[Rfam]
RNA: M-box riboswitch aptamer (ykoK leader)
Organism: Aneurinibacillus danicus
RNA sequence: AAGCAUUCUCGUUAGGCGAGGCUCCAGUUCAAACACAGGCCACUGCCCGGAAACGUCGAGAGACGCCAAUGGGUAGAACAGGUAUUGCCGGAUUAAGGCUCUACUUAAGGUGGCUGAGUCAUUACUCUACGUUGUUCUGUGCCGAAGCUCAACCAGGAGAAUACGC
Numbered sequence: 001a002a003g004c005a006u007u008c009u010c011g012u013u014a015g016g017c018g019a020g021g022c023u024c025c026a027g028u029u030c031a032a033a034c035a036c037a038g039g040c041c042a043c044u045g046c047c048c049g050g051a052a053a054c055g056u057c058g059a060g061a062g063a064c065g066c067c068a069a070u071g072g073g074u075a076g077a078a079c080a081g082g083u084a085u086u087g088c089c090g091g092a093u094u095a096a097g098g099c100u101c102u103a104c105u106u107a108a109g110g111u112g113g114c115u116g117a118g119u120c121a122u123u124a125c126u127c128u129a130c131g132u133u134g135u136u137c138u139g140u141g142c143c144g145a146a147g148c149u150c151a152a153c154c155a156g157g158a159g160a161a162u163a164c165g166c
Stems, first nucleotide, its partner, number of pairs: 005162006011153002013096001015149003020143003025139003030134003039114005045074005054065004081105004087099003116127003